[Rfam]
This 78-nucleotide RNA from Phycicoccus flavus belongs to the Rfam family "ZMP/ZTP riboswitch aptamer (pfl RNA motif)".
The base pairs follow the family's consensus structure, which is taken from published work.
Its family is annotated with regulation of purine nucleotide biosynthetic process and one-carbon metabolic process in the Gene Ontology.
On this family, see Jones and Ferre-D'Amare, Nat Struct Mol Biol 2015: "Recognition of the bacterial alarmone ZMP through long-distance association of two RNA subdomains".

RNA sequence: CGCAGGACCGACGACUGGCGCGGGUGGGUCACCACCGGGAAGUCUGCAGUCGGGGCAUCGCCCGCCUGGGUGCCCCGG
Numbered sequence: 001c002g003c004a005g006g007a008c009c010g011a012c013g014a015c016u017g018g019c020g021c022g023g024g025u026g027g028g029u030c031a032c033c034a035c036c037g038g039g040a041a042g043u044c045u046g047c048a049g050u051c052g053g054g055g056c057a058u059c060g061c062c063c064g065c066c067u068g069g070g071u072g073c074c075c076c077g078g
Base pairs, nucleotide, nucleotide: 003049008046010044011043012042015039016038017066018065019064020063024035025034026033027032055073056072057071058070059069